[Rfam]
RNA: Small nucleolar RNA snoR138
Organism: Citrus x clementina
RNA sequence: AAUGCCUCAGAAUAACCAGAAGGUUAAAUUUUUAACCACACCGUUUGGUUCAGACAGAGGCUUAUAGCAAAACCCCGCAGCACAAAGGUAUUAAUAAUUCUUCCCAUUUCUUGUUAUUUGGGAUUUUCUCCUUAUAGCUGCGGAUAUUU
Numbered sequence: 001a002a003u004g005c006c007u008c009a010g011a012a013u014a015a016c017c018a019g020a021a022g023g024u025u026a027a028a029u030u031u032u033u034a035a036c037c038a039c040a041c042c043g044u045u046u047g048g049u050u051c052a053g054a055c056a057g058a059g060g061c062u063u064a065u066a067g068c069a070a071a072a073c074c075c076c077g078c079a080g081c082a083c084a085a086a087g088g089u090a091u092u093a094a095u096a097a098u099u100c101u102u103c104c105c106a107u108u109u110c111u112u113g114u115u116a117u118u119u120g121g122g123a124u125u126u127u128c129u130c131c132u133u134a135u136a137g138c139u140g141c142g143g144a145u146a147u148u149u
Stems, first nucleotide, its partner, number of pairs: 004061005014050007023041002076142006083120002086117001088115001090114001093111001096108003